[Rfam]
RNA sequence: CGACCCCGCACGGGAGAGUGUCCUCGCAGCCAGCGCGGACCGCCGAAGGAGCAAUUCCUCCCCGCAGAACCUCUCAGGCGCGACGGACCGUACGGGUGAG
Dot-bracket structure: .....(((.((((......((((.............)))).(((((..(((...(..........)....))))).)))........)))).))).....
Numbered sequence: 001c002g003a004c005c006c007c008g009c010a011c012g013g014g015a016g017a018g019u020g021u022c023c024u025c026g027c028a029g030c031c032a033g034c035g036c037g038g039a040c041c042g043c044c045g046a047a048g049g050a051g052c053a054a055u056u057c058c059u060c061c062c063c064g065c066a067g068a069a070c071c072u073c074u075c076a077g078g079c080g081c082g083a084c085g086g087a088c089c090g091u092a093c094g095g096g097u098g099a100g
Stems, first nucleotide, its partner, number of pairs: 006095003010091004020040004042079003045075002049073003055066001
This 100-nucleotide RNA from Haloactinospora alba belongs to the Rfam family "Glycine riboswitch aptamer". Lineage of the source: Bacteria > Bacillati > Actinomycetota > Actinomycetes > Haloactinospora. Pairs were carried over by alignment from the consensus structure.